The family of this 354-nucleotide part of an RNA from Monosporascus ibericus is "Ascomycota telomerase RNA".
Gene Ontology terms of the family: telomerase activity, telomerase catalytic core complex and telomere maintenance via telomerase.
RNA sequence: UUCAACGGAGAGAGCUUCUUUGAAGUCGGUUCGACAGGAAUGUUAUGAUGGUAGCCGCCGAUUUCGAUAAGCGAAUUCGUCUACGACAGUCCUGGUUUCUUGGAAGCUAAUGACGGGGUCAUGGGGGUCGGAGAUUGAGGUUAUCAGCAUGAAUUGCUUCUCCUCGCAAGACGCGGAGACCGGGACCCAUCUAGAGUUGGAGUCAAAGCUUAGAGCUUGUCCGGUCUUUGUGGAUUGCCUGUAGCAGCAUUCCUAGCGAUGACCUACCAAUUCAAUUUUUUGAUUCUGUCAAUCUGGAAGACUGGUCUGAAGACAAAUCGUAGGCUGUUCUUCGCUCUUGUGGAGGACAGCCUC
Numbered sequence: 001u002u003c004a005a006c007g008g009a010g011a012g013a014g015c016u017u018c019u020u021u022g023a024a025g026u027c028g029g030u031u032c033g034a035c036a037g038g039a040a041u042g043u044u045a046u047g048a049u050g051g052u053a054g055c056c057g058c059c060g061a062u063u064u065c066g067a068u069a070a071g072c073g074a075a076u077u078c079g080u081c082u083a084c085g086a087c088a089g090u091c092c093u094g095g096u097u098u099c100u101u102g103g104a105a106g107c108u109a110a111u112g113a114c115g116g117g118g119u120c121a122u123g124g125g126g127g128u129c130g131g132a133g134a135u136u137g138a139g140g141u142u143a144u145c146a147g148c149a150u151g152a153a154u155u156g157c158u159u160c161u162c163c164u165c166g167c168a169a170g171a172c173g174c175g176g177a178g179a180c181c182g183g184g185a186c187c188c189a190u191c192u193a194g195a196g197u198u199g200g201a202g203u204c205a206a207a208g209c210u211u212a213g214a215g216c217u218u219g220u221c222c223g224g225u226c227u228u229u230g231u232g233g234a235u236u237g238c239c240u241g242u243a244g245c246a247g248c249a250u251u252c253c254u255a256g257c258g259a260u261g262a263c264c265u266a267c268c269a270a271u272u273c274a275a276u277u278u279u280u281u282g283a284u285u286c287u288g289u290c291a292a293u294c295u296g297g298a299a300g301a302c303u304g305g306u307c308u309g310a311a312g313a314c315a316a317a318u319c320g321u322a323g324g325c326u327g328u329u330c331u332u333c334g335c336u337c338u339u340g341u342g343g344a345g346g347a348c349a350g351c352c353u354c
Stems, first nucleotide, its partner, number of pairs: 184204003187200003206218004
NCBI's taxonomy places the organism under Eukaryota, Ascomycota, Xylariomycetidae, Xylariales, Monosporascus. The family's RNA type in Rfam is non-coding RNA gene. The family is grouped with related families in Rfam's "Telomerase clan". A reference for the family is Qi et al. (2013), "The common ancestral core of vertebrate and fungal telomerase RNAs", Nucleic Acids Res.